[Rfam]
RNA sequence: CCAAAGGCUCUUUUCAGAGCCACCCACUUCUCUGAAAGUGUUAUAU
Numbered sequence: 001c002c003a004a005a006g007g008c009u010c011u012u013u014u015c016a017g018a019g020c021c022a023c024c025c026a027c028u029u030c031u032c033u034g035a036a037a038g039u040g041u042u043a044u045a046u
Base pairs, nucleotide, nucleotide: 006021007020008019009018010017011016
A member of the RNA family "Histone 3' UTR stem-loop" from Acipenser ruthenus, 46 nucleotides long. It is annotated as a cis-regulatory element. It scores 39 bits against the family's covariance model.